[Rfam]
RNA sequence: AACGGGGUACGCGACUGGCGAUAGGCGCUGCAUUUAGCCAAUGGAUGCAGCCGCUGACGUGGAAACCAGCAAGAACCUACUUCUUGUGAACCACUGGGAAGCGUGCCGCAGGGGCCCUGCCCCGUGCGUUCAGCCGUUCGCCUGGGCAGCCCUU
Numbered sequence: 001a002a003c004g005g006g007g008u009a010c011g012c013g014a015c016u017g018g019c020g021a022u023a024g025g026c027g028c029u030g031c032a033u034u035u036a037g038c039c040a041a042u043g044g045a046u047g048c049a050g051c052c053g054c055u056g057a058c059g060u061g062g063a064a065a066c067c068a069g070c071a072a073g074a075a076c077c078u079a080c081u082u083c084u085u086g087u088g089a090a091c092c093a094c095u096g097g098g099a100a101g102c103g104u105g106c107c108g109c110a111g112g113g114g115c116c117c118u119g120c121c122c123c124g125u126g127c128g129u130u131c132a133g134c135c136g137u138u139c140g141c142c143u144g145g146g147c148a149g150c151c152c153u154u
Stems, first nucleotide, its partner, number of pairs: 004109001006107007015098002017142005059094004131149001133147003
RNA: ZMP/ZTP riboswitch aptamer (pfl RNA motif)